Shown here is a 53-nucleotide sequence from Coregonus sp. 'balchen', a member of the family "UnaL2 LINE 3' element". The match comes from Rfam's covariance-model search (63 bits). On this family, see Baba et al., RNA 2004: "Solution structure of an RNA stem-loop derived from the 3' conserved region of eel LINE UnaL2". The eel long interspersed element (LINE) UnaL2 and its partner short interspersed element (SINE) share a conserved 3' tail containing a stem-loop that is critical for their retrotransposition. Presumably, the first step of retrotransposition is the recognition of their 3' tails by UnaL2-encoded reverse transcriptase.
RNA sequence: CAAAUGAAUGACUGUAAGUCGCUUUGGAUAAAGCGUCUGCUAAAUGGCUUAUU
Numbered sequence: 001c002a003a004a005u006g007a008a009u010g011a012c013u014g015u016a017a018g019u020c021g022c023u024u025u026g027g028a029u030a031a032a033g034c035g036u037c038u039g040c041u042a043a044a045u046g047g048c049u050u051a052u053u
Base pairs, nucleotide, nucleotide: 013042014040015039016038020035021034022033023032024031025030